The family of this 54-nucleotide RNA from Ixodes scapularis is "Guanidine-II riboswitch aptamer (mini-ykkC)". It scores 32 bits against the family's covariance model. Taxonomically the source falls in Ixodes (Eukaryota, Eumetazoa, Arachnida, Ixodidae).
Nucleotides: 054
Stems, first nucleotide, its partner, number of pairs: 001020008041054005
Number, partner (000 for none) and nucleotide at each position: 001020c002019u003018u004017c005016g006015a007014g008013g009000a010000c011000g012000a013008c014007u015006u016005c017004g018003a019002g020001g021000a022000c023000g024000a025000c026000u027000u028000c029000g030000a031000u032000g033000a034000c035000g036000a037000c038000u039000c040000u041054u042053g043052a044051g045050g046000a047000c048000g049000a050045c051044c052043u053042c054041a